RNA: MIR1520 microRNA precursor family
RNA sequence: UUCUUACUAAAUGACGAUUGUCACGUGUCAUGUUCUGAUUACAUGAAAGAUGAAAUGCAUUGUUAUUUUCAUUGACCAAUCAGAACAUGACACAUGACAAUCA
Numbered sequence: 001u002u003c004u005u006a007c008u009a010a011a012u013g014a015c016g017a018u019u020g021u022c023a024c025g026u027g028u029c030a031u032g033u034u035c036u037g038a039u040u041a042c043a044u045g046a047a048a049g050a051u052g053a054a055a056u057g058c059a060u061u062g063u064u065a066u067u068u069u070c071a072u073u074g075a076c077c078a079a080u081c082a083g084a085a086c087a088u089g090a091c092a093c094a095u096g097a098c099a100a101u102c103a
Base pairs, nucleotide, nucleotide: 020098021097022096023095025093026092029089030088031087033085034084035083036082038080039079040078